[Rfam]
The family of this 348-nucleotide sequence from Roseobacter insulae is "Alphaproteobacteria transfer-messenger RNA". Pairs were carried over by alignment from the consensus structure, which is taken from published work. NCBI's taxonomy places the organism under Bacteria, Pseudomonadati, Pseudomonadota, Roseobacteraceae, Roseobacter. The family is grouped with related families in Rfam's "tRNA clan". Rfam classes the family as a non-coding RNA gene. Its family is annotated with RNA catabolic process in the Gene Ontology. Rfam's curators write: Bacterial tmRNA, also known as 10Sa RNA or SsrA, is named for its dual tRNA and mRNA-like properties.

RNA sequence: CCUCUUGAGAUUUCCGCACCACUCACCUAUGUCUGAGAUGUCCUUCGGGACUAUGGACAUAAACGCGCUCGUAAUAAGCGGAUCGGACCCGGGGGCGGUACCCGGCGGCUCCACCAACAUCCUUCAUUUGGGGAUCAUGGGGCCGAAACAGGAUCGACGAACGUCUAAAGGGGUUUGCUUUGUCUCGGCUGUCUGCCACCGUUAUCGGCGAAACAUGUACAAUUGCAAAUGACAAUCGUGCUCCAGUAGCAAUGGCCGCGUAAGCGACCUGAGAUACUGAAACCUAACUCCUUGCGUUUAGCGACGUAAGGCGGGGUUCGCAGGCACCUGGCAACAGAAGCCUGCACU
Numbered sequence: 001c002c003u004c005u006u007g008a009g010a011u012u013u014c015c016g017c018a019c020c021a022c023u024c025a026c027c028u029a030u031g032u033c034u035g036a037g038a039u040g041u042c043c044u045u046c047g048g049g050a051c052u053a054u055g056g057a058c059a060u061a062a063a064c065g066c067g068c069u070c071g072u073a074a075u076a077a078g079c080g081g082a083u084c085g086g087a088c089c090c091g092g093g094g095g096c097g098g099u100a101c102c103c104g105g106c107g108g109c110u111c112c113a114c115c116a117a118c119a120u121c122c123u124u125c126a127u128u129u130g131g132g133g134a135u136c137a138u139g140g141g142g143c144c145g146a147a148a149c150a151g152g153a154u155c156g157a158c159g160a161a162c163g164u165c166u167a168a169a170g171g172g173g174u175u176u177g178c179u180u181u182g183u184c185u186c187g188g189c190u191g192u193c194u195g196c197c198a199c200c201g202u203u204a205u206c207g208g209c210g211a212a213a214c215a216u217g218u219a220c221a222a223u224u225g226c227a228a229a230u231g232a233c234a235a236u237c238g239u240g241c242u243c244c245a246g247u248a249g250c251a252a253u254g255g256c257c258g259c260g261u262a263a264g265c266g267a268c269c270u271g272a273g274a275u276a277c278u279g280a281a282a283c284c285u286a287a288c289u290c291c292u293u294g295c296g297u298u299u300a301g302c303g304a305c306g307u308a309a310g311g312c313g314g315g316g317u318u319c320g321c322a323g324g325c326a327c328c329u330g331g332c333a334a335c336a337g338a339a340g341c342c343u344g345c346a347c348u
Stems, first nucleotide, its partner, number of pairs: 040051004055185005065178002067174004079163002083160003089105005106145007186201003192211002195209003314329004320345006